[Rfam]
RNA sequence: UUCUUAUCAAGAGAAGUGGAGGGAUUAGGCCCUGUGAUACUUCGGCAACCUCUGUUGUACAGAAAGGUGCUAAUUCCUAACAAGACGAUCUUGGAAGAUAAGAG
Numbered sequence: 001u002u003c004u005u006a007u008c009a010a011g012a013g014a015a016g017u018g019g020a021g022g023g024a025u026u027a028g029g030c031c032c033u034g035u036g037a038u039a040c041u042u043c044g045g046c047a048a049c050c051u052c053u054g055u056u057g058u059a060c061a062g063a064a065a066g067g068u069g070c071u072a073a074u075u076c077c078u079a080a081c082a083a084g085a086c087g088a089u090c091u092u093g094g095a096a097g098a099u100a101a102g103a104g
Stems, first nucleotide, its partner, number of pairs: 001104008013043005021032003026079004044071004049067002051063004075096001081093005
This 104-nucleotide RNA sequence from Psychrobacillus sp. BL-248-WT-3 belongs to the Rfam family "SAM riboswitch aptamer (S box leader)". The base pairs follow the family's consensus structure, which is taken from published work.